[Rfam]
RNA sequence: UGUCUCCUCUACUUCCUCAAAGGAAUUAGAUUCAGCCCGCUCCCGCAGCGGGCUUUUUUUU
Numbered sequence: 001u002g003u004c005u006c007c008u009c010u011a012c013u014u015c016c017u018c019a020a021a022g023g024a025a026u027u028a029g030a031u032u033c034a035g036c037c038c039g040c041u042c043c044c045g046c047a048g049c050g051g052g053c054u055u056u057u058u059u060u061u
Base pairs, nucleotide, nucleotide: 008030009029010028011027012022013021034054035053036052037051038050039049040048041047

The family of this 61-nucleotide sequence from Janthinobacterium sp. KBS0711 is "Betaproteobacteria toxic small RNA". A search with the family's covariance model found it, with a score of 56 bits. Rfam describes the family as follows. Overexpression in amino aid rich medium attenuates growth, suggesting role in repressing amino acid intake and metabolism.